[Rfam]
RNA sequence: AGACAAGGAACUUCUACUAAAGCCGUUCACGUCCUGUGGACAACGUUGAAGUCACCACAUCCUGUGAA
Dot-bracket structure: ..........((((.((........(((((.....)))))....)).))))....(((.....)))..
This 68-nucleotide RNA sequence from Oceanobacillus zhaokaii belongs to the Rfam family "Bacillaceae-1 RNA".
The base pairs follow the family's consensus structure, which is taken from published work.
It scores 56 bits against the family's covariance model.